[Rfam]
RNA sequence: CAGACCACCACACCACGUCAGGGCAGGAGCGGGGGACCCAGGUUCAGUGCCGUCCCGCGCGGCUAGGGGUGAAGCCGCCCACCGGAUCCGUCCGGUCGGGCGGCCGGGCCAACCUCCCGGCCCGAACCCGACAGCUCACCUCGCAGGCGUGCGGAGAGGAAAC
Numbered sequence: 001c002a003g004a005c006c007a008c009c010a011c012a013c014c015a016c017g018u019c020a021g022g023g024c025a026g027g028a029g030c031g032g033g034g035g036a037c038c039c040a041g042g043u044u045c046a047g048u049g050c051c052g053u054c055c056c057g058c059g060c061g062g063c064u065a066g067g068g069g070u071g072a073a074g075c076c077g078c079c080c081a082c083c084g085g086a087u088c089c090g091u092c093c094g095g096u097c098g099g100g101c102g103g104c105c106g107g108g109c110c111a112a113c114c115u116c117c118c119g120g121c122c123c124g125a126a127c128c129c130g131a132c133a134g135c136u137c138a139c140c141u142c143g144c145a146g147g148c149g150u151g152c153g154g155a156g157a158g159g160a161a162a163c
Stems, first nucleotide, its partner, number of pairs: 006149001008147002014027001029144006039066001067129003075103006106123004
Shown here is a 163-nucleotide sequence from Kitasatospora acidiphila, a member of the family "c-di-AMP riboswitch aptamer (ydaO/yuaA leader)". Its family is annotated with regulation of gene expression and cyclic-di-AMP binding in the Gene Ontology. A search with the family's covariance model found it, with a score of 58 bits.